[Rfam]
RNA sequence: CAUCGCGAUGCUCUCUUCAUGGGAACAUCGUGAUGAGGAUACUAUCAAAGCGUCAGCUCAAGGAGCUCGUUCUGUACUCACCGCAGCACAUCGCACGAUUGGAAAUGGCCGGGCAAUUCCCCAAGCGGGUACACCUUGGCCCUAGCCGAGUGGGGUGGGUUGAGGCUGAAGUGCUCGAUUGGCUUCAAAAACGGUUGGAUCGUCGAGAAGCGCCUAGCCGACACUCCUUCUGAAGGAGCGGGUGGCCGGGUGUGCACAGCCC
Numbered sequence: 001c002a003u004c005g006c007g008a009u010g011c012u013c014u015c016u017u018c019a020u021g022g023g024a025a026c027a028u029c030g031u032g033a034u035g036a037g038g039a040u041a042c043u044a045u046c047a048a049a050g051c052g053u054c055a056g057c058u059c060a061a062g063g064a065g066c067u068c069g070u071u072c073u074g075u076a077c078u079c080a081c082c083g084c085a086g087c088a089c090a091u092c093g094c095a096c097g098a099u100u101g102g103a104a105a106u107g108g109c110c111g112g113g114c115a116a117u118u119c120c121c122c123a124a125g126c127g128g129g130u131a132c133a134c135c136u137u138g139g140c141c142c143u144a145g146c147c148g149a150g151u152g153g154g155g156u157g158g159g160u161u162g163a164g165g166c167u168g169a170a171g172u173g174c175u176c177g178a179u180u181g182g183c184u185u186c187a188a189a190a191a192c193g194g195u196u197g198g199a200u201c202g203u204c205g206a207g208a209a210g211c212g213c214c215u216a217g218c219c220g221a222c223a224c225u226c227c228u229u230c231u232g233a234a235g236g237a238g239c240g241g242g243u244g245g246c247c248g249g250g251u252g253u254g255c256a257c258a259g260c261c262c
Base pairs, nucleotide, nucleotide: 001035002034003033004032005031006030007029008028009027010026012025014023015022016021053198054197055196056195057194058193062186063185064184065183066182067181069179070178071177075173076172077171078170079168080167081165082164084162085161086160087159089157090156091155092154094152095151096150099148101146107141108140109139111136112135113134119129120128121127200248202246203245204244205243218241219240220239224238225237226236227235228234229233249261250260251259